[Rfam]
RNA: Small nucleolar RNA SNORA28
Organism: Dipodomys ordii
RNA sequence: AAGCAACACUCUAUGGCAGAUAAUCAAAACUAUCUGACACAAUUUGAGCUUGCUAUAGUGAGAAAGUCUAACCUAUUCCAGUGUUCUCUCCUCCAUGAGACAAGCCAUUAUAUAAACUUAAACAAU
Numbered sequence: 001a002a003g004c005a006a007c008a009c010u011c012u013a014u015g016g017c018a019g020a021u022a023a024u025c026a027a028a029a030c031u032a033u034c035u036g037a038c039a040c041a042a043u044u045u046g047a048g049c050u051u052g053c054u055a056u057a058g059u060g061a062g063a064a065a066g067u068c069u070a071a072c073c074u075a076u077u078c079c080a081g082u083g084u085u086c087u088c089u090c091c092u093c094c095a096u097g098a099g100a101c102a103a104g105c106c107a108u109u110a111u112a113u114a115a116a117c118u119u120a121a122a123c124a125a126u
Base pairs, nucleotide, nucleotide: 009048010047011046012041014039015038017036018035019034020033021032022031064119065118066117067116069114070113074112075111076110081105082104087100088099089098090097